[Rfam]
RNA sequence: UGAUGAAUGUGAUGAAAUCAGAAAAUCUUAGGACACCUUCUGACACAGUGCAAGUUUGCUGUGUAUGAGAGAGAUUUUCUCUUCUGAUUUAUGA
Numbered sequence: 001u002g003a004u005g006a007a008u009g010u011g012a013u014g015a016a017a018u019c020a021g022a023a024a025a026u027c028u029u030a031g032g033a034c035a036c037c038u039u040c041u042g043a044c045a046c047a048g049u050g051c052a053a054g055u056u057u058g059c060u061g062u063g064u065a066u067g068a069g070a071g072a073g074a075u076u077u078u079c080u081c082u083u084c085u086g087a088u089u090u091a092u093g094a
Stems, first nucleotide, its partner, number of pairs: 001094001003092005041047002
This 94-nucleotide sequence from Tripterygium wilfordii belongs to the Rfam family "Small nucleolar RNA snoR31/Z110/Z27". Rfam describes the family as follows. This family contains several related snoRNAs including R31, Z27 and Z110. Rfam classes the family as a C/D-box small nucleolar RNA. The family's consensus secondary structure was predicted with PFOLD. NCBI's taxonomy places the organism under Eukaryota, Viridiplantae, rosids, Celastrales, Tripterygium. Its family is annotated with RNA processing and nucleolus in the Gene Ontology. Rfam 15.1 lists 571 matches to the family in 198 species.